RNA: Small nucleolar RNA Z13/snr52
RNA sequence: CUUGAUCAUAUGAUGAAAUAUUUCGGAUGUAAACUCACAGACCUGUUCGGAAUGCGCAAAACCGUGUCGAGAUUUUCCGUUGCCUUCCUUCUGACUGAUCAA
Numbered sequence: 001c002u003u004g005a006u007c008a009u010a011u012g013a014u015g016a017a018a019u020a021u022u023u024c025g026g027a028u029g030u031a032a033a034c035u036c037a038c039a040g041a042c043c044u045g046u047u048c049g050g051a052a053u054g055c056g057c058a059a060a061a062c063c064g065u066g067u068c069g070a071g072a073u074u075u076u077c078c079g080u081u082g083c084c085u086u087c088c089u090u091c092u093g094a095c096u097g098a099u100c101a102a
Stems, first nucleotide, its partner, number of pairs: 003101003024079004